[Rfam]
RNA sequence: AAUAGGGUUAUGAUAAUUUAUUCCUAAACCUUCAGAAGGAGGAAUAAGUUGGAUAUCUGUUAGU
Number, nucleotide and partner (000 for none) at each position: 001a064002a000003u062004a061005g060006g000007g000008u000009u000010a000011u000012g000013a000014u000015a050016a049017u048018u047019u046020a045021u044022u043023c042024c041025u000026a000027a000028a000029c000030c039031u038032u037033c000034a000035g000036a000037a032038g031039g030040a000041g024042g023043a022044a021045u020046a019047a018048g017049u016050u015051g000052g000053a000054u000055a000056u000057c000058u000059g000060u005061u004062a003063g000064u001

Selenocysteine insertion sequence 1: a 64-nucleotide sequence from Stegodyphus mimosarum. NCBI's taxonomy places the organism under Eukaryota, Opisthokonta, Bilateria, Arthropoda, Stegodyphus. A search with the family's covariance model found it, with a score of 37 bits. The family's consensus secondary structure is taken from published work. A reference for the family is Lambert et al. (2002), "A survey of metazoan selenocysteine insertion sequences", Biochimie.